RNA sequence: GUUCGUUGAGCGCUUAAUUUUCGGCAUUAUUGCCGUAAAGCGGGGGAACCAUCAGAUGGGGCGUAUUCCGUAAAGGAUAGAGCAACUCUUUCAGCUCGAGCCCGUCAGCUAACCUCGUAGGCGUUGAAAGGGAGUGGAA
Numbered sequence: 001g002u003u004c005g006u007u008g009a010g011c012g013c014u015u016a017a018u019u020u021u022c023g024g025c026a027u028u029a030u031u032g033c034c035g036u037a038a039a040g041c042g043g044g045g046g047a048a049c050c051a052u053c054a055g056a057u058g059g060g061g062c063g064u065a066u067u068c069c070g071u072a073a074a075g076g077a078u079a080g081a082g083c084a085a086c087u088c089u090u091u092c093a094g095c096u097c098g099a100g101c102c103c104g105u106c107a108g109c110u111a112a113c114c115u116c117g118u119a120g121g122c123g124u125u126g127a128a129a130g131g132g133a134g135u136g137g138a139a
Stems, first nucleotide, its partner, number of pairs: 011123004018039003040118006050058002059103003067077003080097004
Dot-bracket structure: ..........((((...(((................)))((((((....((.....))(((.....(((.....)))..((((..........))))...))).........)))))).))))................
c-di-AMP riboswitch aptamer (ydaO/yuaA leader): a 139-nucleotide RNA from Mahella australiensis. Its family is annotated with cyclic-di-AMP binding and regulation of gene expression in the Gene Ontology. The pairing is the family consensus, mapped onto this sequence. The organism belongs to Mahella australiensis, within Bacteria.